[Rfam]
The family of this 182-nucleotide RNA from Nephila pilipes is "Wolbachia sRNA 46". Taxonomically the source falls in Nephila (Eukaryota, Opisthokonta, Eumetazoa, Arachnida). The base pairs follow the family's consensus structure. On this family, see Mayoral et al., Proc Natl Acad Sci U S A 2014: "Wolbachia small noncoding RNAs and their role in cross-kingdom communications".
RNA sequence: AAUUGCACAACAGAUGAUGUCAUUCCAGUGCUUGACACUGGAAUCCAGAAAUUUUGCUUAUAACUGAGCUGAUGAGCUAAAGGUAGUUGUCUUACGCUAAAACAAACGUUUUUAAUUAAGUUGCAUAGAAGCUGGAUCCCAGUGUCAAGCACUGGGAUGACAAGAAAGGGAGCACUGGAAUG
Numbered sequence: 001a002a003u004u005g006c007a008c009a010a011c012a013g014a015u016g017a018u019g020u021c022a023u024u025c026c027a028g029u030g031c032u033u034g035a036c037a038c039u040g041g042a043a044u045c046c047a048g049a050a051a052u053u054u055u056g057c058u059u060a061u062a063a064c065u066g067a068g069c070u071g072a073u074g075a076g077c078u079a080a081a082g083g084u085a086g087u088u089g090u091c092u093u094a095c096g097c098u099a100a101a102a103c104a105a106a107c108g109u110u111u112u113u114a115a116u117u118a119a120g121u122u123g124c125a126u127a128g129a130a131g132c133u134g135g136a137u138c139c140c141a142g143u144g145u146c147a148a149g150c151a152c153u154g155g156g157a158u159g160a161c162a163a164g165a166a167a168g169g170g171a172g173c174a175c176u177g178g179a180a181u182g
Stems, first nucleotide, its partner, number of pairs: 011177003018162024043137006